Source information:
DUF805b RNA: a 33-nucleotide RNA sequence. It is annotated as a cis-regulatory element. The sequence is in the family's curated seed alignment.
RNA sequence: AUUGCGGAAGCCGAAAAGCAGGAAGAGUAGGCA
Numbered sequence: 001a002u003u004g005c006g007g008a009a010g011c012c013g014a015a016a017a018g019c020a021g022g023a024a025g026a027g028u029a030g031g032c033a
Stems, first nucleotide, its partner, number of pairs: 002021004010032003